[Rfam]
RNA sequence: GUCUCCCGUGCCUACUGAGCUGAUAAUCAGUCUUACAAAACACUGGCUCAGUUCAGCAGGAACAGGAG
Numbered sequence: 001g002u003c004u005c006c007c008g009u010g011c012c013u014a015c016u017g018a019g020c021u022g023a024u025a026a027u028c029a030g031u032c033u034u035a036c037a038a039a040a041c042a043c044u045g046g047c048u049c050a051g052u053u054c055a056g057c058a059g060g061a062a063c064a065g066g067a068g
Base pairs, nucleotide, nucleotide: 003068004067005066006065008063009062011060012059013058015056016055017054018053019052020051021050022049023048027046028045029044030043031042
RNA: mir-24 microRNA precursor family